[Rfam]
The record is a 149-nucleotide sequence from Gossypium arboreum, which matches "MIR8643 microRNA precursor family" in Rfam. The match comes from Rfam's covariance-model search (136 bits). The family's consensus secondary structure was predicted with RNAalifold. Lineage of the source: Eukaryota > Embryophyta > Spermatophyta > rosids > Gossypium.
RNA sequence: AUUUCUUUUAACAUAUCAAGAAGUCUAGUUGACAAUGAAGAAAGAAGUAAGAAGUCAAAAGCCAUCAGUACCUGUAACCAAAACUCAUAAACUGAUACCAUACUUCUUUCUUCACUGCUAAGUUGACUUCUUGGUAUGUUAAAAGAAAU
Numbered sequence: 001a002u003u004u005c006u007u008u009u010a011a012c013a014u015a016u017c018a019a020g021a022a023g024u025c026u027a028g029u030u031g032a033c034a035a036u037g038a039a040g041a042a043a044g045a046a047g048u049a050a051g052a053a054g055u056c057a058a059a060a061g062c063c064a065u066c067a068g069u070a071c072c073u074g075u076a077a078c079c080a081a082a083a084c085u086c087a088u089a090a091a092c093u094g095a096u097a098c099c100a101u102a103c104u105u106c107u108u109u110c111u112u113c114a115c116u117g118c119u120a121a122g123u124u125g126a127c128u129u130c131u132u133g134g135u136a137u138g139u140u141a142a143a144a145g146a147a148a149u
Stems, first nucleotide, its partner, number of pairs: 004146015020130006027123001029121003033117002036114011048102002051099001055095002